The family of this 113-nucleotide RNA from Robertkochia marina is "SAM riboswitch aptamer (S box leader)". Rfam describes the family as follows. The SAM riboswitch is found upstream of a number of genes which code for proteins involved in methionine or cysteine biosynthesis in Gram-positive bacteria. Gene Ontology term of the family: regulation of gene expression.
RNA sequence: AUGUUAUCAAGAAAGGUGGAGGGAAUAGACCCUGCGAAGCCUUAGCAACCCUUACCCUGUAAGAAGGUGCUACAUUCUACAUGAGGUGAUUGAUCAUCUCAGAUAGAUAACCA
Numbered sequence: 001a002u003g004u005u006a007u008c009a010a011g012a013a014a015g016g017u018g019g020a021g022g023g024a025a026u027a028g029a030c031c032c033u034g035c036g037a038a039g040c041c042u043u044a045g046c047a048a049c050c051c052u053u054a055c056c057c058u059g060u061a062a063g064a065a066g067g068u069g070c071u072a073c074a075u076u077c078u079a080c081a082u083g084a085g086g087u088g089a090u091u092g093a094u095c096a097u098c099u100c101a102g103a104u105a106g107a108u109a110a111c112c113a
Stems, first nucleotide, its partner, number of pairs: 003111006013043005021032003026079004044071004049067002051063004075105001080102001082101007